Rfam assigns this 141-nucleotide RNA from Cucumis melo to the family "mir-399 microRNA precursor family".
The literature on the family includes a 2004 paper in Mol Cell by Jones-Rhoades and Bartel, "Computational Identification of Plant MicroRNAs and Their Targets, Including a Stress-Induced miRNA".
[Rfam]
RNA sequence: UUAGGAAUGACAGUGCAAUUCUCCUUUGGCAACAACAUGAAUGAAACAACAGUCACUCUUUUCUUUUAAAAAAAUGCAUUUAUAUAAAUGUAUUUGUGUUUAUGCAUUUUUGCCAAAGGAGAAUUGCCCUGCCAUUUACUC
Numbered sequence: 001u002u003a004g005g006a007a008u009g010a011c012a013g014u015g016c017a018a019u020u021c022u023c024c025u026u027u028g029g030c031a032a033c034a035a036c037a038u039g040a041a042u043g044a045a046a047c048a049a050c051a052g053u054c055a056c057u058c059u060u061u062u063c064u065u066u067u068a069a070a071a072a073a074a075u076g077c078a079u080u081u082a083u084a085u086a087a088a089u090g091u092a093u094u095u096g097u098g099u100u101u102a103u104g105c106a107u108u109u110u111u112g113c114c115a116a117a118g119g120a121g122a123a124u125u126g127c128c129c130u131g132c133c134a135u136u137u138a139c140u141c
Stems, first nucleotide, its partner, number of pairs: 005137005011131003015127005021121004027115006034108002